[Rfam]
RNA sequence: GCAGACUCACUCUGUACUGGACUGCAACCUUCAGUUCAGGUGCUUUUUCUGUCUGCGAGAGUAAUGGUUCACAGAGUGAAAAUUGCCUUCUUUCUUGUAGAAGGCUGUUACAAUUGCUGCUGUGACAGUGCU
Numbered sequence: 001g002c003a004g005a006c007u008c009a010c011u012c013u014g015u016a017c018u019g020g021a022c023u024g025c026a027a028c029c030u031u032c033a034g035u036u037c038a039g040g041u042g043c044u045u046u047u048u049c050u051g052u053c054u055g056c057g058a059g060a061g062u063a064a065u066g067g068u069u070c071a072c073a074g075a076g077u078g079a080a081a082a083u084u085g086c087c088u089u090c091u092u093u094c095u096u097g098u099a100g101a102a103g104g105c106u107g108u109u110a111c112a113a114u115u116g117c118u119g120c121u122g123u124g125a126c127a128g129u130g131c132u
Stems, first nucleotide, its partner, number of pairs: 001056006014043005020037001022034003069122001072119003076114002078111001080109002085105004
The record is a 132-nucleotide sequence from Glaucidium brasilianum, which matches "Small nucleolar RNA SNORA77" in Rfam.
A search with the family's covariance model found it, with a score of 55 bits.
The family has 19 seed sequences and 843 matches in Rfam 15.1.
For this family Rfam cites "A computational screen for mammalian pseudouridylation guide H/ACA RNAs" (Schattner et al., RNA, 2006).
Pairs were carried over by alignment from the consensus structure, which was predicted with RNAalifold.
Rfam classes the family as an H/ACA-box small nucleolar RNA.
About the family: ACA63 (SNORA77) is a member of the H/ACA class of snoRNAs that guide the sites of modification of uridines to pseudouridines.
Taxonomically the source falls in Glaucidium (Eukaryota, Euteleostomi, Sauropsida, Archelosauria).